[Rfam]
RNA sequence: AUUGGUACCCUAACACUAGCAUUGACUUGUCUAUAUAAUGCAGUAAGUAUUACUUGUUGGGGUAGUUUGA
Number, nucleotide and partner (000 for none) at each position: 001a000002u000003u000004g066005g000006u064007a063008c062009c061010c060011u059012a000013a057014c056015a055016c000017u000018a051019g050020c000021a048022u047023u046024g000025a044026c043027u042028u000029g000030u000031c000032u000033a000034u000035a000036u000037a000038a000039u000040g000041c000042a027043g026044u025045a000046a023047g022048u021049a000050u019051u018052a000053c000054u000055u015056g014057u013058u000059g011060g010061g009062g008063u007064a006065g000066u004067u000068u000069g000070a000
Notes: A member of the RNA family "miR-430 microRNA precursor family" from Salvelinus namaycush, 70 nucleotides long. The family is grouped with related families in Rfam's "mir-290 clan". Lineage of the source: Eukaryota > Eumetazoa > Chordata > Craniata > Salvelinus. It scores 55 bits against the family's covariance model.